[Rfam]
RNA: TD-2 RNA
RNA sequence: UCCGGCAUGGAUGCCGGGAAAGCUGUAUGGAAUCGACGUUUUUGCAAAGCCGUUAGGCUUUGUAAAAACUCGCGUUGAAAAUCGUACACGGAUGUACGAUUUUCAAACCCGC
Numbered sequence: 001u002c003c004g005g006c007a008u009g010g011a012u013g014c015c016g017g018g019a020a021a022g023c024u025g026u027a028u029g030g031a032a033u034c035g036a037c038g039u040u041u042u043u044g045c046a047a048a049g050c051c052g053u054u055a056g057g058c059u060u061u062g063u064a065a066a067a068a069c070u071c072g073c074g075u076u077g078a079a080a081a082u083c084g085u086a087c088a089c090g091g092a093u094g095u096a097c098g099a100u101u102u103u104c105a106a107a108c109c110c111g112c
Base pairs, nucleotide, nucleotide: 001018002017003016004015005014006013034072035071036070038069039068040067041066042065043064044063045062046061047060048059049058050057051056074108075107076105077104078103079102080101081100082099083098084097085096086095087094